Rfam assigns this 98-nucleotide sequence from Caenorhabditis brenneri to the family "Small nucleolar RNA sn2991".

[Rfam]
RNA sequence: AUUUCUAGAUGAUGGAAGAGCAGUGAAUGAUCGUUGAAGUGCCGAAUGUUCAGAAUCAACAGAGACUAAAGCAGCAUCAGUAUCUCCAGAUGAAAAGU
Numbered sequence: 001a002u003u004u005c006u007a008g009a010u011g012a013u014g015g016a017a018g019a020g021c022a023g024u025g026a027a028u029g030a031u032c033g034u035u036g037a038a039g040u041g042c043c044g045a046a047u048g049u050u051c052a053g054a055a056u057c058a059a060c061a062g063a064g065a066c067u068a069a070a071g072c073a074g075c076a077u078c079a080g081u082a083u084c085u086c087c088a089g090a091u092g093a094a095a096a097g098u
Stems, first nucleotide, its partner, number of pairs: 001098004006093001
On this family, see Higa et al., Biochem Biophys Res Commun 2002: "Location of 2(')-O-methyl nucleotides in 26S rRNA and methylation guide snoRNAs in Caenorhabditis elegans". It is annotated as a C/D-box small nucleolar RNA.